[Rfam]
RNA: Streptomyces-metK RNA
Organism: Streptomyces sp. S4.7
RNA sequence: CCGAGACGCCUGGACCUUUCUCGGCGUCUGCCGGAUAAACUGGCCCCGGAACGACGCGGGGCGCAGCUCCCCGCCACUUCCGCCAAGGAUCUAGCCAGCAGCCGCUGCAACCCCAGGGAG
Numbered sequence: 001c002c003g004a005g006a007c008g009c010c011u012g013g014a015c016c017u018u019u020c021u022c023g024g025c026g027u028c029u030g031c032c033g034g035a036u037a038a039a040c041u042g043g044c045c046c047c048g049g050a051a052c053g054a055c056g057c058g059g060g061g062c063g064c065a066g067c068u069c070c071c072c073g074c075c076a077c078u079u080c081c082g083c084c085a086a087g088g089a090u091c092u093a094g095c096c097a098g099c100a101g102c103c104g105c106u107g108c109a110a111c112c113c114c115a116g117g118g119a120g
Stems, first nucleotide, its partner, number of pairs: 048081004053077001057073005096107004